The record is a 71-nucleotide sequence from Solanum tuberosum, which matches "MIR8041 microRNA precursor family" in Rfam. Taxonomically the source falls in Solanum (Eukaryota, Tracheophyta, Spermatophyta, Gunneridae). Rfam links the family to the GO terms miRNA-mediated post-transcriptional gene silencing and RISC complex.

[Rfam]
RNA sequence: GUGCUUUGCUAUUUUCAUUGACUUCAAAAUAUUGUGAUAUUGAGAAUUCAAUGAUGUAUAGCAAAGAGCCU
Numbered sequence: 001g002u003g004c005u006u007u008g009c010u011a012u013u014u015u016c017a018u019u020g021a022c023u024u025c026a027a028a029a030u031a032u033u034g035u036g037a038u039a040u041u042g043a044g045a046a047u048u049c050a051a052u053g054a055u056g057u058a059u060a061g062c063a064a065a066g067a068g069c070c071u
Stems, first nucleotide, its partner, number of pairs: 001069002004066009015054007023046003028041005